[Rfam]
Description:
A member of the RNA family "c-di-AMP riboswitch aptamer (ydaO/yuaA leader)" from Anabaena cylindrica, 136 nucleotides long. Rfam's curators write: This family represents a conserved RNA structure found upstream of the ydaO and yuaA genes in Bacillus subtilis and related genes in other bacteria. Lineage of the source: Bacteria > Nostocales > Nostocaceae > Anabaena > Anabaena cylindrica.
RNA sequence: UUUAGUGGGUAGCCUAAUUCAAAUUCAUGAAAGCUGGAUUUGAAGCGGAGGAACCAAAAAUUGGGGCUAAUCUAACGAGAGACACCUUCCAGUCUUAGCCCGUCAGCUAACUCCGUCGGCAAUGGAAGGAACCCCC
Dot-bracket structure: ...........(((...((((((((((.......))))))))))((((((....((.....))(((.....(....)..((((........))))...))).........)))))).)))................